[Rfam]
RNA sequence: CCGUGCUAGGUGGGGAGGUAGCGGUUCCCUGUACUCGAAAUCCGCUUUAUGCGAGGCUUAAUUCCUUUGUUGAGGCCGUAUUUUUGCGAAGUCUGCCCAAAGCACGUAGUGUUUGAAGAUUUCGGUCCUAUGCAAUAUGAACCCAUGAACCAUGUCAGGUCCUGACGGAAGCAGCAUUAAGUGGAUCAUCAUAUGUGCCGUAGGGUAGCCGAGAUUUAGCUAACGACUUUGGUUACGUUCGUGAAUUACGUUCGAUGCUUAGGUGCACGG
Numbered sequence: 001c002c003g004u005g006c007u008a009g010g011u012g013g014g015g016a017g018g019u020a021g022c023g024g025u026u027c028c029c030u031g032u033a034c035u036c037g038a039a040a041u042c043c044g045c046u047u048u049a050u051g052c053g054a055g056g057c058u059u060a061a062u063u064c065c066u067u068u069g070u071u072g073a074g075g076c077c078g079u080a081u082u083u084u085u086g087c088g089a090a091g092u093c094u095g096c097c098c099a100a101a102g103c104a105c106g107u108a109g110u111g112u113u114u115g116a117a118g119a120u121u122u123c124g125g126u127c128c129u130a131u132g133c134a135a136u137a138u139g140a141a142c143c144c145a146u147g148a149a150c151c152a153u154g155u156c157a158g159g160u161c162c163u164g165a166c167g168g169a170a171g172c173a174g175c176a177u178u179a180a181g182u183g184g185a186u187c188a189u190c191a192u193a194u195g196u197g198c199c200g201u202a203g204g205g206u207a208g209c210c211g212a213g214a215u216u217u218a219g220c221u222a223a224c225g226a227c228u229u230u231g232g233u234u235a236c237g238u239u240c241g242u243g244a245a246u247u248a249c250g251u252u253c254g255a256u257g258c259u260u261a262g263g264u265g266c267a268c269g270g
Stems, first nucleotide, its partner, number of pairs: 001270006008059004012030006019023001034055004039050001064263003069258002074253002077250002083245008095233001098231005106224002108221003118216009127204006133195002136193005141186001143184004152177004160169003
Source information:
The family of this 270-nucleotide sequence from Staphylococcus aureus is "Bacterial large signal recognition particle RNA". By type it is a non-coding RNA gene. Its Rfam clan is "SRP clan". The sequence is in the family's curated seed alignment. The signal recognition particle (SRP) is a universally conserved ribonucleoprotein involved in the co-translational targeting of proteins to membranes.